[Rfam]
RNA sequence: CUGUAAAGAUAUGGUGGCUGUAGAGUCAUCCCCAUAAUCUGGAAAUGGGCCAUAUCGAGGAA
Numbered sequence: 001c002u003g004u005a006a007a008g009a010u011a012u013g014g015u016g017g018c019u020g021u022a023g024a025g026u027c028a029u030c031c032c033c034a035u036a037a038u039c040u041g042g043a044a045a046u047g048g049g050c051c052a053u054a055u056c057g058a059g060g061a062a
Stems, first nucleotide, its partner, number of pairs: 008056006014029006031049005

S4-Fusobacteriales ribosomal protein leader: a 62-nucleotide RNA sequence. The sequence is in the family's curated seed alignment. A reference for the family is Eckert and Weinberg (2020), "Discovery of 20 novel ribosomal leader candidates in bacteria and archaea", BMC Microbiol.